[Rfam]
RNA sequence: GAUUAUCUAAGACCGCUUUUUAAUAUUCGAUAGAGAAGGAACGGGGGAACCAAACUUUGGGGCGUAUCUGAAUGACAAUCAAUCACCGAUUGUAUUAAGAGGGACAUCUCUCAGUCCUAGCCCAUCAGCUAACCUCGUCGGUAUUGAGAGAAGACUG
Number, nucleotide and partner (000 for none) at each position: 001g000002a000003u000004u000005a000006u000007c000008u000009a000010a000011g000012a142013c141014c140015g000016c000017u000018u040019u039020u038021u000022a000023a000024u000025a000026u000027u000028c000029g000030a000031u000032a000033g000034a000035g000036a000037a000038g020039g019040a018041a138042c137043g136044g135045g134046g133047g000048a000049a000050c000051c059052a058053a000054a000055c000056u000057u000058u052059g051060g123061g122062g121063c000064g000065u000066a000067u000068c099069u098070g000071a096072a095073u094074g093075a000076c000077a000078a000079u000080c000081a000082a000083u000084c000085a000086c000087c000088g000089a000090u000091u000092g000093u074094a073095u072096u071097a000098a069099g068100a000101g000102g117103g116104a115105c114106a000107u000108c000109u000110c000111u000112c000113a000114g105115u104116c103117c102118u000119a000120g000121c062122c061123c060124a000125u000126c000127a000128g000129c000130u000131a000132a000133c046134c045135u044136c043137g042138u041139c000140g014141g013142u012143a000144u000145u000146g000147a000148g000149a000150g000151a000152a000153g000154a000155c000156u000157g000
Shown here is a 157-nucleotide RNA from Gloeothece citriformis, a member of the family "c-di-AMP riboswitch aptamer (ydaO/yuaA leader)". Rfam's curators write: This family represents a conserved RNA structure found upstream of the ydaO and yuaA genes in Bacillus subtilis and related genes in other bacteria. The ydaO/yuaA element is thought to act as a genetic 'off' switch for the ydaO and yuaA genes in its native state. It is believed that the element may be triggered during osmotic shock leading to activation of ydaO, a predicted amino acid transporter gene, and members of the yuaA-yubG operon which code for KtrA and KtrB K+ transporters. The match comes from Rfam's covariance-model search (61 bits).